[Rfam]
RNA sequence: AAUCGGCUGCGGGCCCCUCUGGCGGAUGCGCAUCUAUGCCUUCCGUGAUGUCGGAGCCGAUGC
Numbered sequence: 001a002a003u004c005g006g007c008u009g010c011g012g013g014c015c016c017c018u019c020u021g022g023c024g025g026a027u028g029c030g031c032a033u034c035u036a037u038g039c040c041u042u043c044c045g046u047g048a049u050g051u052c053g054g055a056g057c058c059g060a061u062g063c
Base pairs, nucleotide, nucleotide: 006057007056008055010053011052012051022046023045024044025043026042028040
The record is a 63-nucleotide RNA from Methylobacterium sp. Leaf93, which matches "terC RNA" in Rfam. Taxonomically the source falls in Methylobacterium (Bacteria, Pseudomonadota, Hyphomicrobiales, Methylobacteriaceae). The family's consensus secondary structure is taken from published work. The match comes from Rfam's covariance-model search (52 bits).